[Rfam]
A member of the RNA family "Eukaryotic large subunit ribosomal RNA" from Plasmodium falciparum, 328 nucleotides of a longer RNA.

RNA sequence: GAGUCUAGCAAAUGUGCAAGUGUAUAUGAUUCUUUAAACAUUUCUCUUUUUAAUAUACGCAUAAUUAAUGUAAUAUGUUUCUUUAUUGUAGAUUUGUGUGGUGUUUAAUUUUUAUUAAAUCCCCACUUUGCAUACAAUACCGGUAAGCAAAUUAUGCUUUAUUGAGUACGAGCAUAUUUGGUAGGACCCGAGAGGCUUUGAACUAAGCGUGAUGAGAUUGAAGUCAGACGAAAGUCUGAUGGAGGAUCGAGUUGAUACUGACGUGCAAAUCGUUCAUUUCAAUCACGUUUAGGGGCGAAAGACUAAUCGAAAAGCCUAUUAGCUGGUU
Numbered sequence: 001g002a003g004u005c006u007a008g009c010a011a012a013u014g015u016g017c018a019a020g021u022g023u024a025u026a027u028g029a030u031u032c033u034u035u036a037a038a039c040a041u042u043u044c045u046c047u048u049u050u051u052a053a054u055a056u057a058c059g060c061a062u063a064a065u066u067a068a069u070g071u072a073a074u075a076u077g078u079u080u081c082u083u084u085a086u087u088g089u090a091g092a093u094u095u096g097u098g099u100g101g102u103g104u105u106u107a108a109u110u111u112u113u114a115u116u117a118a119a120u121c122c123c124c125a126c127u128u129u130g131c132a133u134a135c136a137a138u139a140c141c142g143g144u145a146a147g148c149a150a151a152u153u154a155u156g157c158u159u160u161a162u163u164g165a166g167u168a169c170g171a172g173c174a175u176a177u178u179u180g181g182u183a184g185g186a187c188c189c190g191a192g193a194g195g196c197u198u199u200g201a202a203c204u205a206a207g208c209g210u211g212a213u214g215a216g217a218u219u220g221a222a223g224u225c226a227g228a229c230g231a232a233a234g235u236c237u238g239a240u241g242g243a244g245g246a247u248c249g250a251g252u253u254g255a256u257a258c259u260g261a262c263g264u265g266c267a268a269a270u271c272g273u274u275c276a277u278u279u280c281a282a283u284c285a286c287g288u289u290u291a292g293g294g295g296c297g298a299a300a301g302a303c304u305a306a307u308c309g310a311a312a313a314g315c316c317u318a319u320u321a322g323c324u325g326g327u328u
Base pairs, nucleotide, nucleotide: 005184006183007182009180010179011178012177013176014175015174016173017172020060021059022058025055026054027053029051064071065070110137111136113134114133117129118128119127139167140166141164142163143162144161145160146159150155187326188325190323194316195315196314197313198312199311203292204291205290206289207288208287209286210285211284212283213282214280216248217247218246219245223240224239225238226237227236228235229234253276254275255274257273258272260271261270294304295303

A search with the family's covariance model found it, with a score of 2658 bits.